[Rfam]
RNA sequence: UAAAGACGCAGAACUUAGCUCAUUAGUGAGCAUCAGUAAAACAGGAUUUGUUCACAGUGGCUAAGUUCAGUGUCUGAC
Numbered sequence: 001u002a003a004a005g006a007c008g009c010a011g012a013a014c015u016u017a018g019c020u021c022a023u024u025a026g027u028g029a030g031c032a033u034c035a036g037u038a039a040a041a042c043a044g045g046a047u048u049u050g051u052u053c054a055c056a057g058u059g060g061c062u063a064a065g066u067u068c069a070g071u072g073u074c075u076g077a078c
Stems, first nucleotide, its partner, number of pairs: 011068010026055007

About this RNA:
This 78-nucleotide RNA from Cyprinodon variegatus belongs to the Rfam family "mir-27 microRNA precursor family". Rfam links the family to the GO terms RISC complex and miRNA-mediated post-transcriptional gene silencing.